[Rfam]
RNA sequence: CUAACGGCUGGCUAGGGUUCCGACUCGCUUGUGCGUGUGACUGGUCCGAGAGCUGGCGACCUCCAGUGAGGUUACACGGCGGGACAAAAGCCCGGGAGAA
Numbered sequence: 001c002u003a004a005c006g007g008c009u010g011g012c013u014a015g016g017g018u019u020c021c022g023a024c025u026c027g028c029u030u031g032u033g034c035g036u037g038u039g040a041c042u043g044g045u046c047c048g049a050g051a052g053c054u055g056g057c058g059a060c061c062u063c064c065a066g067u068g069a070g071g072u073u074a075c076a077c078g079g080c081g082g083g084a085c086a087a088a089a090g091c092c093c094g095g096g097a098g099a100a
Base pairs, nucleotide, nucleotide: 007057008056009055010054011053012052015047016046020044021043022041023038024037026035027034028033058073059072060071061070062069063068075095077098081093082092083091
Record summary
The family of this 100-nucleotide RNA from Pseudomonas cavernae is "Guanidine-I riboswitch aptamer". A reference for the family is Barrick et al. (2004), "New RNA motifs suggest an expanded scope for riboswitches in bacterial genetic control", Proc Natl Acad Sci U S A. It scores 90 bits against the family's covariance model.